[Rfam]
RNA sequence: UCGAGACGGGGUGGUCCGGAGCGGGGGAGCGGUGGAUAAACUGACCUCUGGAACGUCGCGGGGCGCAGCCCCCUGCCGGUCCACCCAUGAUCAGCCAGCAGCCGCUGCAACCCCAGGGAG
Numbered sequence: 001u002c003g004a005g006a007c008g009g010g011g012u013g014g015u016c017c018g019g020a021g022c023g024g025g026g027g028a029g030c031g032g033u034g035g036a037u038a039a040a041c042u043g044a045c046c047u048c049u050g051g052a053a054c055g056u057c058g059c060g061g062g063g064c065g066c067a068g069c070c071c072c073c074u075g076c077c078g079g080u081c082c083a084c085c086c087a088u089g090a091u092c093a094g095c096c097a098g099c100a101g102c103c104g105c106u107g108c109a110a111c112c113c114c115a116g117g118g119a120g
Base pairs, nucleotide, nucleotide: 050082051081052080054078055077058076060074061073062072063071096107097106098105099104
Description: Streptomyces-metK RNA: a 120-nucleotide RNA sequence from Streptomyces clavuligerus. The source organism's lineage runs through Bacteria, Bacillati, Actinomycetota, Actinomycetes and Streptomyces. The sequence is in the family's curated seed alignment. The family's RNA type in Rfam is small RNA.